RNA sequence: UCCUGGUCCAAGUGCAGUGGUGUUUACAACUAAUUAAUCACAACCACUUACAGAUUUCUUCAUUCAUUCUCCACUCCCACUGCUUCACUUGACUAGCUUAA
Numbered sequence: 001u002c003c004u005g006g007u008c009c010a011a012g013u014g015c016a017g018u019g020g021u022g023u024u025u026a027c028a029a030c031u032a033a034u035u036a037a038u039c040a041c042a043a044c045c046a047c048u049u050a051c052a053g054a055u056u057u058c059u060u061c062a063u064u065c066a067u068u069c070u071c072c073a074c075u076c077c078c079a080c081u082g083c084u085u086c087a088c089u090u091g092a093c094u095a096g097c098u099u100a101a
Stems, first nucleotide, its partner, number of pairs: 003096006010090002014086001016081005022076001032064003036060002

The record is a 101-nucleotide RNA sequence from Aotus nancymaae, which matches "Y RNA" in Rfam. The match comes from Rfam's covariance-model search (68 bits). The family's RNA type in Rfam is non-coding RNA gene. NCBI's taxonomy places the organism under Eukaryota, Metazoa, Dipnotetrapodomorpha, Theria, Aotus.